[Rfam]
Record summary
Rfam assigns this 84-nucleotide sequence from Geodermatophilus sp. TF02-6 to the family "c-di-GMP-II-GAG riboswitch aptamer". NCBI's taxonomy places the organism under Bacteria, Actinomycetota, Actinomycetes, Geodermatophilales, Geodermatophilus.

RNA sequence: GCAACACGGGUAGCGAAGACCCGUCGGGCGACCUGGUCGCCGCAUGCCCGACGGCGAGCAAUGGCGAAACCGGACCCGUCUCCC
Numbered sequence: 001g002c003a004a005c006a007c008g009g010g011u012a013g014c015g016a017a018g019a020c021c022c023g024u025c026g027g028g029c030g031a032c033c034u035g036g037u038c039g040c041c042g043c044a045u046g047c048c049c050g051a052c053g054g055c056g057a058g059c060a061a062u063g064g065c066g067a068a069a070c071c072g073g074a075c076c077c078g079u080c081u082c083c084c
Base pairs, nucleotide, nucleotide: 001084004081006079007078008077009076010075011074013059014058021054022053023052024051025050026049027048028047035071036070037067038066039065040064041063
It scores 47 bits against the family's covariance model. On this family, see Weinberg et al., Proc Natl Acad Sci U S A 2017: "Bioinformatic analysis of riboswitch structures uncovers variant classes with altered ligand specificity".